[Rfam]
RNA sequence: UAAUUUAUUUGAGGCAAAUCCUCAUUUAAUUAUAACAGACCCACACCUGACUGUUCAGAAUCACCUAUUAUCACAAAUCCGACUACUUCUUUGGCAUUUAAAAACAAAGAACAAUUACUAUGUGGACAAUAACUUGAGAUCAUAAA
Numbered sequence: 001u002a003a004u005u006u007a008u009u010u011g012a013g014g015c016a017a018a019u020c021c022u023c024a025u026u027u028a029a030u031u032a033u034a035a036c037a038g039a040c041c042c043a044c045a046c047c048u049g050a051c052u053g054u055u056c057a058g059a060a061u062c063a064c065c066u067a068u069u070a071u072c073a074c075a076a077a078u079c080c081g082a083c084u085a086c087u088u089c090u091u092u093g094g095c096a097u098u099u100a101a102a103a104a105c106a107a108a109g110a111a112c113a114a115u116u117a118c119u120a121u122g123u124g125g126a127c128a129a130u131a132a133c134u135u136g137a138g139a140u141c142a143u144a145a146a
Stems, first nucleotide, its partner, number of pairs: 004144001006142001008139002012135001014133001019128001023122003027117005

MIR480 microRNA precursor family: a 146-nucleotide sequence from Populus trichocarpa. For this family Rfam cites "Novel and mechanical stress-responsive MicroRNAs in Populus trichocarpa that are absent from Arabidopsis" (Lu et al., Plant Cell, 2005). The sequence is in the family's curated seed alignment. Pairs were carried over by alignment from the consensus structure, which was predicted with WAR. Rfam 15.1 lists 3,070 matches to the family in 171 species.